[Rfam]
This 31-nucleotide sequence from Rotaria sp. Silwood2 belongs to the Rfam family "Iron response element II". The family's RNA type in Rfam is cis-regulatory element. IRE, TFRC, SLC40A1, SDHB, SLC11A2, CDC42BPA, ACO2, ALAS2_H.SAPIENS, CDC14A, EPAS1, ALAS2, qoxD, Hao1, NDUFS1, transferrin, Aconitate. The match comes from Rfam's covariance-model search (34 bits).
RNA sequence: UAAUAAUCCGCAGCAGUGUCUGCCAUUAUUU
Number, nucleotide and partner (000 for none) at each position: 001u000002a030003a029004u028005a027006a026007u025008c000009c000010g023011c022012a021013g020014c018015a000016g000017u000018g014019u000020c013021u012022g011023c010024c000025a007026u006027u005028a004029u003030u002031u000